RNA sequence: UCCCCUAUAGUUCUCCGUCACUCGGUUUCCCCUUCUGGGGAUGUCUCUCACGGGACCACCCGGGCAGGACUGAGGCACCACAAUUCGUCGCAAGCUUCGACUCUCGUAUCGAGAUACCGCUCCAAGCUAACGCCGCGUCUGGGCCAAAUUGUGUUUAGCCAUGGGCCUGCAUUGCCGUCUGUCUGUCUGGCUGGCUGUGAUUCAGGCUGCCGAAACGCAGACCUGCUUGAGAAGUUACCAGCAGAUAGACAGCAAUCGCAAUGGUGACCGCCAUGCAGUCCUGCUUUUUAUCCCGGGUGAACUGGGUUUCGGAACUUAACCCUAAGUACUCU
Number, nucleotide and partner (000 for none) at each position: 001u000002c000003c000004c000005c000006u000007a000008u000009a316010g315011u314012u000013c000014u000015c312016c311017g310018u000019c000020a000021c000022u000023c000024g000025g000026u000027u000028u000029c000030c000031c000032c000033u000034u000035c000036u000037g000038g000039g000040g000041a000042u000043g000044u000045c000046u000047c000048u000049c000050a000051c000052g000053g000054g000055a000056c000057c000058a000059c000060c000061c000062g000063g000064g000065c000066a000067g000068g000069a000070c000071u000072g000073a000074g000075g000076c000077a000078c000079c000080a000081c000082a000083a000084u000085u000086c000087g000088u000089c000090g000091c000092a000093a000094g000095c000096u000097u000098c000099g000100a000101c000102u000103c000104u000105c000106g000107u000108a000109u000110c000111g000112a000113g000114a000115u000116a000117c000118c000119g000120c000121u000122c000123c000124a000125a000126g000127c000128u000129a000130a000131c000132g000133c000134c000135g000136c000137g000138u000139c000140u000141g000142g000143g000144c000145c000146a000147a000148a000149u000150u000151g000152u000153g000154u000155u000156u000157a000158g000159c000160c000161a000162u000163g000164g000165g000166c000167c000168u000169g000170c000171a000172u000173u000174g000175c000176c000177g000178u000179c000180u000181g000182u000183c000184u000185g000186u000187c000188u000189g000190g000191c000192u000193g000194g000195c000196u000197g000198u000199g000200a000201u000202u000203c000204a000205g000206g000207c000208u000209g000210c000211c000212g000213a000214a000215a000216c000217g000218c000219a000220g000221a000222c000223c000224u000225g000226c000227u000228u000229g000230a000231g000232a000233a000234g000235u000236u000237a000238c000239c000240a000241g000242c000243a000244g000245a000246u000247a000248g000249a000250c000251a000252g000253c000254a000255a000256u000257c000258g000259c000260a000261a000262u000263g000264g000265u000266g000267a000268c000269c000270g000271c000272c000273a000274u000275g000276c000277a000278g000279u000280c000281c000282u000283g000284c000285u000286u000287u000288u000289u000290a000291u000292c000293c000294c000295g000296g000297g000298u000299g000300a000301a000302c000303u000304g000305g000306g000307u000308u000309u000310c017311g016312g015313a000314a011315c010316u009317u000318a000319a000320c000321c000322c000323u000324a000325a000326g000327u000328a000329c000330u000331c000332u000

This 332-nucleotide part of an RNA from Bombardia bombarda belongs to the Rfam family "Ascomycota telomerase RNA". It is annotated as a non-coding RNA gene. Its family is annotated with telomerase catalytic core complex, telomerase activity and telomere maintenance via telomerase in the Gene Ontology. On this family, see Qi et al., Nucleic Acids Res 2013: "The common ancestral core of vertebrate and fungal telomerase RNAs". Clan: Telomerase clan.